[Rfam]
RNA: DUF3800-XI RNA
RNA sequence: GGGGCUGGCCGCAAGGCCCUGGUCCCACUAAAAGGCUGGGGAUGGUGCCC
Numbered sequence: 001g002g003g004g005c006u007g008g009c010c011g012c013a014a015g016g017c018c019c020u021g022g023u024c025c026c027a028c029u030a031a032a033a034g035g036c037u038g039g040g041g042a043u044g045g046u047g048c049c050c
Stems, first nucleotide, its partner, number of pairs: 001026006007018004